This 81-nucleotide RNA sequence from Avibacterium volantium belongs to the Rfam family "Aggregatibacter sRNA 69". The base pairs follow the family's consensus structure, which was predicted with RNAfold. A search with the family's covariance model found it, with a score of 50 bits. The family's RNA type in Rfam is small RNA.
[Rfam]
Nucleotides: 081
Stems, first nucleotide, its partner, number of pairs: 008062004018049007027041002063076004
Number, partner (000 for none) and nucleotide at each position: 001000u002000a003000a004000a005000u006000a007000a008062u009061c010060g011059c012000u013000a014000u015000g016000g017000u018049u019048g020047c021046u022045a023044u024043u025000u026000u027041u028040u029000u030000u031000u032000a033000g034000a035000a036000a037000c038000a039000c040028a041027a042000u043024a044023a045022u046021a047020g048019u049018g050000c051000u052000g053000g054000a055000u056000a057000c058000u059011g060010c061009g062008a063076g064075a065074g066073u067000a068000a069000a070000a071000u072000u073066a074065u075064u076063u077000c078000u079000u080000g081000c
For this family Rfam cites "Small RNA repertoires and their intraspecies variation in Aggregatibacter actinomycetemcomitans" (Oogai et al., DNA Res, 2017).